[Rfam]
RNA sequence: AUCUUAAAGACACACUCAAGCCUUGGCACCUAAGUCUGAAGAUAAGGUGCACUGGCCGUGGCCUUACUCGCCACCAGGGUGCAGGAAGAAAUGACUGCAUCUCCCGUAUUUUGGAAAGGUGUACUCAGUGACUCAAC
Numbered sequence: 001a002u003c004u005u006a007a008a009g010a011c012a013c014a015c016u017c018a019a020g021c022c023u024u025g026g027c028a029c030c031u032a033a034g035u036c037u038g039a040a041g042a043u044a045a046g047g048u049g050c051a052c053u054g055g056c057c058g059u060g061g062c063c064u065u066a067c068u069c070g071c072c073a074c075c076a077g078g079g080u081g082c083a084g085g086a087a088g089a090a091a092u093g094a095c096u097g098c099a100u101c102u103c104c105c106g107u108a109u110u111u112u113g114g115a116a117a118g119g120u121g122u123a124c125u126c127a128g129u130g131a132c133u134c135a136a137c
Base pairs, nucleotide, nucleotide: 004130012122013121014120015119017118020056021055022054026050027049028048029047030046034043035042036041058074059073060072061071062070077102078101079100080099081098082097083096084095087092103114104113